[Rfam]
RNA sequence: UUUAUAACUCUAUAUAUGGGCCGAACACCAAACAAUAUUUGGACUGUAGGAUAGAUUCAAACUUCUUUUUUCUUGCUAAGAUUUGAACAUAAAAGUGGUAUUAUCGAGUCUUGGACUCCUCAUGAAUGUUUGAGGCAUAUAUCUUAGAUUUCCAUC
Numbered sequence: 001u002u003u004a005u006a007a008c009u010c011u012a013u014a015u016a017u018g019g020g021c022c023g024a025a026c027a028c029c030a031a032a033c034a035a036u037a038u039u040u041g042g043a044c045u046g047u048a049g050g051a052u053a054g055a056u057u058c059a060a061a062c063u064u065c066u067u068u069u070u071u072c073u074u075g076c077u078a079a080g081a082u083u084u085g086a087a088c089a090u091a092a093a094a095g096u097g098g099u100a101u102u103a104u105c106g107a108g109u110c111u112u113g114g115a116c117u118c119c120u121c122a123u124g125a126a127u128g129u130u131u132g133a134g135g136c137a138u139a140u141a142u143c144u145u146a147g148a149u150u151u152c153c154a155u156c
Stems, first nucleotide, its partner, number of pairs: 003154001006151002008147002012144001014142005020136001021134001024131002027129002035123002041119003045115001048112005054105003060099001062098002068092002073087002

Shown here is a 156-nucleotide sequence from Populus tomentosa, a member of the family "MIR2912 microRNA precursor family". Its family is annotated with RISC complex and miRNA-mediated post-transcriptional gene silencing in the Gene Ontology.